RNA sequence: GAAAGCCAGUCUCAAAGCAGGCCAGACAGGCUGCUUGCAAUCCUGGAUGGUCCUGCUUUAGAGACGCUAACCCGUAUGAGUACGAGGGAUGCCAUAGGCAGCCCGUAGAGUACGAAUACGGGUAGGAUGGCGAGAGUGCGUUGCACGGAGCCAUCCGUGGCUUUC
Numbered sequence: 001g002a003a004a005g006c007c008a009g010u011c012u013c014a015a016a017g018c019a020g021g022c023c024a025g026a027c028a029g030g031c032u033g034c035u036u037g038c039a040a041u042c043c044u045g046g047a048u049g050g051u052c053c054u055g056c057u058u059u060a061g062a063g064a065c066g067c068u069a070a071c072c073c074g075u076a077u078g079a080g081u082a083c084g085a086g087g088g089a090u091g092c093c094a095u096a097g098g099c100a101g102c103c104c105g106u107a108g109a110g111u112a113c114g115a116a117u118a119c120g121g122g123u124a125g126g127a128u129g130g131c132g133a134g135a136g137u138g139c140g141u142u143g144c145a146c147g148g149a150g151c152c153a154u155c156c157g158u159g160g161c162u163u164u165c
Base pairs, nucleotide, nucleotide: 001165002164003163004162005161006160007159010064011063012062013061016057017056018055019054020053021051022050023049024048027045028044029042030041032039033038070123071122072121073120074119075118076117077116080113081112082111083110087104088103090100091099092098093097125156126155127154128153129152130151131150136146137145138144139143
RNA: Clostridiales-1 RNA